DUF805b RNA: a 36-nucleotide RNA sequence. Its Rfam clan is "DUF805 clan". Pairs were carried over by alignment from the consensus structure, which is taken from published work. Rfam classes the family as a cis-regulatory element.
RNA sequence: UAGGCAGAAUCCGAAAAGCCAGAAAAAGAGUAGGAA
Numbered sequence: 001u002a003g004g005c006a007g008a009a010u011c012c013g014a015a016a017a018g019c020c021a022g023a024a025a026a027a028g029a030g031u032a033g034g035a036a
Base pairs, nucleotide, nucleotide: 003020004019005018010035011034012033